[Rfam]
RNA sequence: GACACAGGUAGAGGUUGCGGUCUUCAAGAGUACGUUUCUCCAUACACGCGAAAUCGAGGGGAAGCCGAAAGGGACGACCGCCGAAGGGCGCCUGGGCCGUUUCGCGGGUCGAAAGCGCACCUGGGACCGGAGAGAACAUCUCCGGGACUGUCGCGGCAACGCGGAGCGCUACCGGAACA
Dot-bracket structure: ......(((((.....((((((.((........(((((((..................))))))).......)).))))))...(((((((.......................)))).)))((..(((((((.....)))))))..)).(((((....)))))....)))))......

Shown here is a 179-nucleotide RNA from Sutterella megalosphaeroides, a member of the family "Lysine riboswitch aptamer". Riboswitches are metabolite binding domains within certain messenger RNAs that serve as precision sensors for their corresponding targets. The family's consensus secondary structure is taken from published work. Its family is annotated with lysine biosynthetic process in the Gene Ontology.